[Rfam]
RNA sequence: CAACACAAUAGGGUGUUUUAUGCAGUAACCUCUGCGUAGCGGCUAGAACCCGCAUUGGGCUUCUUUAAAGGAGAAAUCAAAUG
Numbered sequence: 001c002a003a004c005a006c007a008a009u010a011g012g013g014u015g016u017u018u019u020a021u022g023c024a025g026u027a028a029c030c031u032c033u034g035c036g037u038a039g040c041g042g043c044u045a046g047a048a049c050c051c052g053c054a055u056u057g058g059g060c061u062u063c064u065u066u067a068a069a070g071g072a073g074a075a076a077u078c079a080a081a082u083g
Stems, first nucleotide, its partner, number of pairs: 002017005019038007039053004
RNA: freshwater-2 RNA